[Rfam]
RNA: Burkholderia sRNA Bp1_Cand684_SIPHT
Organism: Paraburkholderia tagetis
RNA sequence: AGAAAAGUAGGUGCCGCCCCGCACAGGGGCAACGCUAAUAGACCGACACGAAAACAAGGAAACGCGACAAAACCAAGGCCCCCGAUUUGCGCUAACUCUUCAAAAACUCACUCAAAAGCGCACCCC
Numbered sequence: 001a002g003a004a005a006a007g008u009a010g011g012u013g014c015c016g017c018c019c020c021g022c023a024c025a026g027g028g029g030c031a032a033c034g035c036u037a038a039u040a041g042a043c044c045g046a047c048a049c050g051a052a053a054a055c056a057a058g059g060a061a062a063c064g065c066g067a068c069a070a071a072a073c074c075a076a077g078g079c080c081c082c083c084g085a086u087u088u089g090c091g092c093u094a095a096c097u098c099u100u101c102a103a104a105a106a107c108u109c110a111c112u113c114a115a116a117a118g119c120g121c122a123c124c125c126c
Stems, first nucleotide, its partner, number of pairs: 011092004016030005058083002111120001113118001